[Rfam]
RNA: mir-190 microRNA precursor family
Organism: Chiloscyllium punctatum
RNA sequence: GAGACUGUCUGAUAUGUUUGCUAUAUUAGGUUGUUAACUAAAACUCAACGAUAUAUCAAACAUAUUUGUACAGUUUC
Numbered sequence: 001g002a003g004a005c006u007g008u009c010u011g012a013u014a015u016g017u018u019u020g021c022u023a024u025a026u027u028a029g030g031u032u033g034u035u036a037a038c039u040a041a042a043a044c045u046c047a048a049c050g051a052u053a054u055a056u057c058a059a060a061c062a063u064a065u066u067u068g069u070a071c072a073g074u075u076u077c
Stems, first nucleotide, its partner, number of pairs: 005073004011066010022055004030049004